Overview
Shown here is a 90-nucleotide RNA sequence from Streptomyces beijiangensis, a member of the family "sodF sRNA". Rfam classes the family as a small RNA. The family has 6 seed sequences and 336 matches in Rfam 15.1. The match comes from Rfam's covariance-model search (77 bits). Rfam links the family to the GO terms negative regulation of translation, regulation of mRNA stability and mRNA binding.
RNA sequence: ACGUCCUGCUCGUGAUCGUCUUCUCAACUGUUGCGUGCAGGCGGAUGGAACGGGUGGCCCCCGCGAGGACAUGACUCGCGGGGGCUGUCU
Numbered sequence: 001a002c003g004u005c006c007u008g009c010u011c012g013u014g015a016u017c018g019u020c021u022u023c024u025c026a027a028c029u030g031u032u033g034c035g036u037g038c039a040g041g042c043g044g045a046u047g048g049a050a051c052g053g054g055u056g057g058c059c060c061c062c063g064c065g066a067g068g069a070c071a072u073g074a075c076u077c078g079c080g081g082g083g084g085c086u087g088u089c090u
Base pairs, nucleotide, nucleotide: 002043003042005041006040007039008038009037011035012034013033014032015031018028019027052090053089054088055087056086057085058084059083060082061081062080063079064078065077066076067075